Rfam assigns this 128-nucleotide sequence from Nicoliella spurrieriana to the family "Ribosomal protein L20 leader".
The base pairs follow the family's consensus structure, which was predicted with CMfinder.
It scores 72 bits against the family's covariance model.
Lineage of the source: Bacteria > Bacilli > Lactobacillales > Lactobacillaceae > Nicoliella.
By type it is a cis-regulatory leader.
[Rfam]
RNA sequence: GAUAAAAAGCAGAAGCAUCCCGCUUCUCGCCUUAGGGACCUAAGUCGCUGGGCAAAUGUACGGUAAAGAUUCGAUUGAUGUCGAAUUAAAAAGCGGGUGCCUUCGUGCGCCCGCUUUUUCUGCUUUUU
Numbered sequence: 001g002a003u004a005a006a007a008a009g010c011a012g013a014a015g016c017a018u019c020c021c022g023c024u025u026c027u028c029g030c031c032u033u034a035g036g037g038a039c040c041u042a043a044g045u046c047g048c049u050g051g052g053c054a055a056a057u058g059u060a061c062g063g064u065a066a067a068g069a070u071u072c073g074a075u076u077g078a079u080g081u082c083g084a085a086u087u088a089a090a091a092a093g094c095g096g097g098u099g100c101c102u103u104c105g106u107g108c109g110c111c112c113g114c115u116u117u118u119u120c121u122g123c124u125u126u127u128u
Base pairs, nucleotide, nucleotide: 011027012026013025014024015023016022029053030052031051035048037046038045039044092115093114094113095112096111097110098109099108100107